[Rfam]
RNA sequence: CCUUCCGAAACAUGUCGUAGCAUGACCUAACUGGAGAUAGUCGGUGGAGUAGAGCACUGAUUGAUGGCCCUGGGGAAGAAAUUCCUCAUCCGUCUGUCAAACUCCGAACCCACCGUCGUCGUAGAAGGUUGGAGUCCGGACUACUGGGGUAAGCCUGUAGUCCGUAAGGGAGACAACCCAGCCCGUGGUUAAGGUCCCUAAGUGUCGACUAAGUGUUAAUACUAAAGGGCGUCCCAAGCCCUAGACAGCUGGAAGGUUAGCUUAGAAGCAGCUAUCCUUUAAAGAGUGCGUAACAGCCCACCAGUCGAGGUUUGGGGCCCCGAAAAUGGACGGGGCUCAAGUCGACCACCGAUACCACGGAGUACCGUAAGGUAAUCUCGUAGGAAGGCGUUGCGUUUGGGUAGAAGCAGGGCUGUGAAGUCCUGUGGACCGAGCGGAAACGAAAAU
Numbered sequence: 001c002c003u004u005c006c007g008a009a010a011c012a013u014g015u016c017g018u019a020g021c022a023u024g025a026c027c028u029a030a031c032u033g034g035a036g037a038u039a040g041u042c043g044g045u046g047g048a049g050u051a052g053a054g055c056a057c058u059g060a061u062u063g064a065u066g067g068c069c070c071u072g073g074g075g076a077a078g079a080a081a082u083u084c085c086u087c088a089u090c091c092g093u094c095u096g097u098c099a100a101a102c103u104c105c106g107a108a109c110c111c112a113c114c115g116u117c118g119u120c121g122u123a124g125a126a127g128g129u130u131g132g133a134g135u136c137c138g139g140a141c142u143a144c145u146g147g148g149g150u151a152a153g154c155c156u157g158u159a160g161u162c163c164g165u166a167a168g169g170g171a172g173a174c175a176a177c178c179c180a181g182c183c184c185g186u187g188g189u190u191a192a193g194g195u196c197c198c199u200a201a202g203u204g205u206c207g208a209c210u211a212a213g214u215g216u217u218a219a220u221a222c223u224a225a226a227g228g229g230c231g232u233c234c235c236a237a238g239c240c241c242u243a244g245a246c247a248g249c250u251g252g253a254a255g256g257u258u259a260g261c262u263u264a265g266a267a268g269c270a271g272c273u274a275u276c277c278u279u280u281a282a283a284g285a286g287u288g289c290g291u292a293a294c295a296g297c298c299c300a301c302c303a304g305u306c307g308a309g310g311u312u313u314g315g316g317g318c319c320c321c322g323a324a325a326a327u328g329g330a331c332g333g334g335g336c337u338c339a340a341g342u343c344g345a346c347c348a349c350c351g352a353u354a355c356c357a358c359g360g361a362g363u364a365c366c367g368u369a370a371g372g373u374a375a376u377c378u379c380g381u382a383g384g385a386a387g388g389c390g391u392u393g394c395g396u397u398u399g400g401g402u403a404g405a406a407g408c409a410g411g412g413c414u415g416u417g418a419a420g421u422c423c424u425g426u427g428g429a430c431c432g433a434g435c436g437g438a439a440a441c442g443a444a445a446a447u
Base pairs, nucleotide, nucleotide: 001388002387003386004385005384006383011024012023013022014021015020026134027132028131029130030129031128032127036120037119038118040117042115043114044113045112046111047110052105053103054102059098060097061096063094064093065092066091067090072087073086074085075084076083077082138163139162140161141160142159143158144157146156147155168179169178170177183360184359185358186357187356188355189354193350194349195348202347204346205345206344207343208342209341227321228320229319231318232317233316234315235314236313237312238311239310240309248305249304250303251302252301254278255277256276259273260272261271279283284299288297289296361378362377363374364373365372366371389442391439392438394436395435396434397433398432399431400430407426408425409424410423411422412421413420414419